Notes
Rfam assigns this 245-nucleotide sequence from Candidatus Filomicrobium marinum to the family "permuted transfer-messenger RNA". About the family: Bacterial tmRNA, also known as 10Sa RNA or SsrA, is named for its dual tRNA and mRNA-like properties. The family's consensus secondary structure is taken from published work. NCBI's taxonomy places the organism under Bacteria, Pseudomonadati, Pseudomonadota, Alphaproteobacteria, Filomicrobium. Rfam classes the family as a non-coding RNA gene. Its family is annotated with RNA catabolic process in the Gene Ontology. For this family Rfam cites "tmRDB (tmRNA database)" (Zwieb et al., Nucleic Acids Res, 2003).
[Rfam]
RNA sequence: GGCGAUAAACGCGGUCGUAAUAAGCCGUUCGGACCCGGGGGCGGUACCCGGCGCCUCCACCACAUGCCCACGCGCAAAAUGCGAAAGAGCCGUUUGGCCGCGUGUGCGUGGGUAUCUGAUGGGGGCGAAAUAGGAUCGACGAAGGUGUAAAGGGCUUAGCUUUUGCUCGGCAUGGUUCCGCCGUUAUCGGGCCGAUCAUAAUAGUUGCAAAUGACAACUAUGCUGAGGCCGCUGUCGCUGCGUAA
Number, nucleotide and partner (000 for none) at each position: 001g167002g166003c165004g164005a163006u000007a000008a000009a000010c000011g000012c000013g156014g155015u154016c153017g000018u000019a000020a000021u000022a000023a000024g000025c145026c144027g000028u000029u142030c141031g140032g000033a000034c000035c051036c050037g049038g048039g047040g000041g000042c000043g000044g000045u000046a000047c039048c038049c037050g036051g035052c127053g126054c125055c124056u123057c122058c121059a000060c000061c000062a000063c000064a000065u000066g000067c000068c000069c000070a000071c000072g000073c000074g000075c000076a000077a000078a000079a000080u000081g000082c000083g000084a000085a000086a000087g000088a000089g000090c000091c000092g000093u000094u000095u000096g000097g000098c000099c000100g000101c000102g000103u000104g000105u000106g000107c000108g000109u000110g000111g000112g000113u000114a000115u000116c000117u000118g000119a000120u000121g058122g057123g056124g055125g054126c053127g052128a000129a000130a000131u000132a000133g000134g000135a000136u000137c000138g000139a000140c031141g030142a029143a000144g026145g025146u000147g000148u000149a000150a000151a000152g000153g016154g015155c014156u013157u000158a000159g000160c000161u000162u000163u005164u004165g003166c002167u001168c183169g182170g181171c180172a000173u000174g000175g000176u000177u000178c000179c000180g171181c170182c169183g168184u000185u000186a000187u000188c000189g000190g000191g000192c000193c000194g000195a000196u000197c000198a000199u000200a000201a000202u000203a000204g000205u000206u000207g000208c000209a000210a000211a000212u000213g000214a000215c000216a000217a000218c000219u000220a000221u000222g000223c000224u000225g000226a000227g000228g000229c000230c000231g000232c000233u000234g000235u000236c000237g000238c000239u000240g000241c000242g000243u000244a000245a000